[Rfam]
RNA sequence: AGCACUAUUUUUAAACCUGUUGGUGGCUUUUCUUGACCACCGCAGGUUACGCUAUAGUGCAAAAGAAUCUCCUGGCUCUCUAGAGCGUAGCUGACCUUGCUCUGUGCAGCUGAUGCUCCUCUGAAGCCGAGGAACAGAA
Numbered sequence: 001a002g003c004a005c006u007a008u009u010u011u012u013a014a015a016c017c018u019g020u021u022g023g024u025g026g027c028u029u030u031u032c033u034u035g036a037c038c039a040c041c042g043c044a045g046g047u048u049a050c051g052c053u054a055u056a057g058u059g060c061a062a063a064a065g066a067a068u069c070u071c072c073u074g075g076c077u078c079u080c081u082a083g084a085g086c087g088u089a090g091c092u093g094a095c096c097u098u099g100c101u102c103u104g105u106g107c108a109g110c111u112g113a114u115g116c117u118c119c120u121c122u123g124a125a126g127c128c129g130a131g132g133a134a135c136a137g138a139a
Stems, first nucleotide, its partner, number of pairs: 002060007014048004021042006068134001070133004074128004079123001082120001085116003088112004093107001

The family of this 139-nucleotide RNA sequence from Atlantisia rogersi is "Small nucleolar RNA SNORA46".
Rfam 15.1 lists 582 matches to the family in 490 species.
The organism belongs to Atlantisia, within Eukaryota.
Rfam's curators write: ACA46 is a member of the H/ACA class of snoRNA that guide the sites of modification of uridines to pseudouridines.